[Rfam]
RNA: Small nucleolar RNA SNORD83
Organism: Amazona aestiva
RNA sequence: GCCAAAUGAUGUGAAAUGGAUGGCACUAGAGCUCUGUGCAAAGAUGACCUUCAUCCAUCACCCCAUACUGAUGGCU
Numbered sequence: 001g002c003c004a005a006a007u008g009a010u011g012u013g014a015a016a017u018g019g020a021u022g023g024c025a026c027u028a029g030a031g032c033u034c035u036g037u038g039c040a041a042a043g044a045u046g047a048c049c050u051u052c053a054u055c056c057a058u059c060a061c062c063c064c065a066u067a068c069u070g071a072u073g074g075c076u
Stems, first nucleotide, its partner, number of pairs: 001075004029039001031037002